Rfam assigns this 102-nucleotide RNA from Peptacetobacter hiranonis to the family "SAM riboswitch aptamer (S box leader)". It is one of the family's seed sequences. Lineage of the source: Bacteria > Bacillota > Clostridia > Peptostreptococcaceae > Peptacetobacter hiranonis. Rfam describes the family as follows. The SAM riboswitch is found upstream of a number of genes which code for proteins involved in methionine or cysteine biosynthesis in Gram-positive bacteria.
RNA sequence: ACCUUAUCAAGAGAGGCUGAGGGACAGGCCCGAUGAAGCCCGGCAACCACCCAUAAGGGAAAAGGUGCUAAUUCCUACAGGAUUUAUCCUGAAAGAUGAGGU
Numbered sequence: 001a002c003c004u005u006a007u008c009a010a011g012a013g014a015g016g017c018u019g020a021g022g023g024a025c026a027g028g029c030c031c032g033a034u035g036a037a038g039c040c041c042g043g044c045a046a047c048c049a050c051c052c053a054u055a056a057g058g059g060a061a062a063a064g065g066u067g068c069u070a071a072u073u074c075c076u077a078c079a080g081g082a083u084u085u086a087u088c089c090u091g092a093a094a095g096a097u098g099a100g101g102u
Stems, first nucleotide, its partner, number of pairs: 001102008013041001015040003021031003026076003042069004047065002051059002073094001078091005